[Rfam]
RNA sequence: GUGGGUCAGGGCCCACGUUAAAACAAGCCGCAUAGGCCCUGAGCGUCCCGCGCUACCGAAUGAGGUAGCGCGGGGGACGGG
Numbered sequence: 001g002u003g004g005g006u007c008a009g010g011g012c013c014c015a016c017g018u019u020a021a022a023a024c025a026a027g028c029c030g031c032a033u034a035g036g037c038c039c040u041g042a043g044c045g046u047c048c049c050g051c052g053c054u055a056c057c058g059a060a061u062g063a064g065g066u067a068g069c070g071c072g073g074g075g076g077a078c079g080g081g
Stems, first nucleotide, its partner, number of pairs: 001016004006042006028080003036044001046075012
Dot-bracket structure: [[[[.((((((.]]]]...........[[[.....[)))))).].((((((((((((......))))))))))))..]]].
A member of the RNA family "Pistol ribozyme" from Tinduovirus TIN2, 81 nucleotides long. On this family, see Weinberg et al., Nat Chem Biol 2015: "New classes of self-cleaving ribozymes revealed by comparative genomics analysis". Its family is annotated with catalytic activity in the Gene Ontology.